[Rfam]
RNA sequence: AUAAGAUUAUUGGUACGGUAAUUCAGCAAAGUACGAGAGGAACUGCUGAGUCAAACCUCUGGUCUUGUAUCUGGUUGAUGAACCACGGUACGACGCUACGUUUGUUGGACUAUGGUUGAACGCCUCUAAACCAGCAUCCUAUCCGUUACCGAUGAUAUGUAAGAAUCUUUUUUUUCCCAAUGUAAAAGUGUAGGCGACUGGAAAGUUUGAAUUUUCAGUUGUCGAGAUUCAUGAGAGUAUUGUUGGAUACUAUUUUGAACAGAAACGAAAUAGUAUUUACGAUUUUCUAUAGUAAAUAAUGACUCCAUUUGGGUGAAAAAGAUGGAAAUUGCUUGUAGACGACUUGCUAUCAACGGGCUGAUGUAAGUAGUGGAGCAUCCUUGCUGGUGCGACCUACUGAGUCUCUUGCCUUGUUUUUAUGAUUUGU
Numbered sequence: 001a002u003a004a005g006a007u008u009a010u011u012g013g014u015a016c017g018g019u020a021a022u023u024c025a026g027c028a029a030a031g032u033a034c035g036a037g038a039g040g041a042a043c044u045g046c047u048g049a050g051u052c053a054a055a056c057c058u059c060u061g062g063u064c065u066u067g068u069a070u071c072u073g074g075u076u077g078a079u080g081a082a083c084c085a086c087g088g089u090a091c092g093a094c095g096c097u098a099c100g101u102u103u104g105u106u107g108g109a110c111u112a113u114g115g116u117u118g119a120a121c122g123c124c125u126c127u128a129a130a131c132c133a134g135c136a137u138c139c140u141a142u143c144c145g146u147u148a149c150c151g152a153u154g155a156u157a158u159g160u161a162a163g164a165a166u167c168u169u170u171u172u173u174u175u176c177c178c179a180a181u182g183u184a185a186a187a188g189u190g191u192a193g194g195c196g197a198c199u200g201g202a203a204a205g206u207u208u209g210a211a212u213u214u215u216c217a218g219u220u221g222u223c224g225a226g227a228u229u230c231a232u233g234a235g236a237g238u239a240u241u242g243u244u245g246g247a248u249a250c251u252a253u254u255u256u257g258a259a260c261a262g263a264a265a266c267g268a269a270a271u272a273g274u275a276u277u278u279a280c281g282a283u284u285u286u287c288u289a290u291a292g293u294a295a296a297u298a299a300u301g302a303c304u305c306c307a308u309u310u311g312g313g314u315g316a317a318a319a320a321g322a323u324g325g326a327a328a329u330u331g332c333u334u335g336u337a338g339a340c341g342a343c344u345u346g347c348u349a350u351c352a353a354c355g356g357g358c359u360g361a362u363g364u365a366a367g368u369a370g371u372g373g374a375g376c377a378u379c380c381u382u383g384c385u386g387g388u389g390c391g392a393c394c395u396a397c398u399g400a401g402u403c404u405c406u407u408g409c410c411u412u413g414u415u416u417u418u419a420u421g422a423u424u425u426g427u
Base pairs, nucleotide, nucleotide: 006156007155008154009153010152011151012150013149016145017144018143021051022050023049024048025047026046027045028044052104053103054102055101056100060098061097062096066092067091068090069089070088072085073084074083075082076081107139108138113133114132115131116130117129166322167321168320169319170318171317172316326425327424328423329422330421331347332346335343352415353414354413355412356410357409358408360403361402367397368396369395370394372393375390376389377388378387379386

This 427-nucleotide part of an RNA from Galdieria sulphuraria belongs to the Rfam family "Eukaryotic large subunit ribosomal RNA". Pairs were carried over by alignment from the consensus structure, which is taken from published work. The source organism's lineage runs through Eukaryota, Rhodophyta, Bangiophyceae, Galdieriaceae and Galdieria.